Shown here is a 67-nucleotide RNA sequence from Pipistrellus kuhlii, a member of the family "mir-9256 microRNA precursor family". A search with the family's covariance model found it, with a score of 81 bits. Rfam links the family to the GO terms miRNA-mediated post-transcriptional gene silencing and RISC complex.
RNA sequence: AUAUACACUGAGUGUCCAGAUUAUUAUUAUCUCUAAACGCAUAAUAAUCUGGACACUCAGUGUAUGU
Numbered sequence: 001a002u003a004u005a006c007a008c009u010g011a012g013u014g015u016c017c018a019g020a021u022u023a024u025u026a027u028u029a030u031c032u033c034u035a036a037a038c039g040c041a042u043a044a045u046a047a048u049c050u051g052g053a054c055a056c057u058c059a060g061u062g063u064a065u066g067u
Base pairs, nucleotide, nucleotide: 004064005063006062007061008060009059010058011057012056013055014054015053016052017051019049020048021047022046023045024044025043026042027041